Rfam assigns this 76-nucleotide sequence from Vibrio campbellii to the family "Fluoride riboswitch aptamer (crcB RNA motif)".
Its family is annotated with positive regulation of gene expression and response to fluoride in the Gene Ontology.
The literature on the family includes a 2012 paper in Science by Baker et al., "Widespread genetic switches and toxicity resistance proteins for fluoride".
RNA sequence: AAUGCACACGGUGAUGGGGUGCCACCAGAAUCGAAAGAUUCAAACCGCUUUUACAGCUGAUGACUCCUACAGAAAC
Numbered sequence: 001a002a003u004g005c006a007c008a009c010g011g012u013g014a015u016g017g018g019g020u021g022c023c024a025c026c027a028g029a030a031u032c033g034a035a036a037g038a039u040u041c042a043a044a045c046c047g048c049u050u051u052u053a054c055a056g057c058u059g060a061u062g063a064c065u066c067c068u069a070c071a072g073a074a075a076c
Stems, first nucleotide, its partner, number of pairs: 010026004016067005047057003

Pairs were carried over by alignment from the consensus structure, which is taken from published work.